[Rfam]
RNA sequence: CUGAAAAUGCAGCCCUACCCUGUACUCUAGCUACUGCAGUUACAGGUAUCUAACUUGAUGAUUUUAGCCUCCUCGGUGGUGUACACAGCCUGUUGCCUAUACGGGUUGCCCUAAGGGACCUUGGAGACAGCC
Numbered sequence: 001c002u003g004a005a006a007a008u009g010c011a012g013c014c015c016u017a018c019c020c021u022g023u024a025c026u027c028u029a030g031c032u033a034c035u036g037c038a039g040u041u042a043c044a045g046g047u048a049u050c051u052a053a054c055u056u057g058a059u060g061a062u063u064u065u066a067g068c069c070u071c072c073u074c075g076g077u078g079g080u081g082u083a084c085a086c087a088g089c090c091u092g093u094u095g096c097c098u099a100u101a102c103g104g105g106u107u108g109c110c111c112u113a114a115g116g117g118a119c120c121u122u123g124g125a126g127a128c129a130g131c132c
Base pairs, nucleotide, nucleotide: 017047018046019045024040025039026038075120076119077118086108087107088106089105090104091103
RNA: Small nucleolar RNA SNORA70